The family of this 50-nucleotide RNA is "ssNA-helicase RNA".
RNA sequence: CCAUAUAAGGGCUAGUAUUACCCCUUAUAUGUAGCAUGUAGCAUGUAGCA
Number, nucleotide and partner (000 for none) at each position: 001c000002c031003a030004u029005a028006u027007a026008a025009g024010g023011g022012c000013u000014a000015g000016u000017a000018u000019u000020a000021c000022c011023c010024c009025u008026u007027a006028u005029a004030u003031g002032u000033a000034g000035c000036a000037u000038g000039u000040a000041g000042c000043a000044u000045g000046u000047a000048g000049c000050a000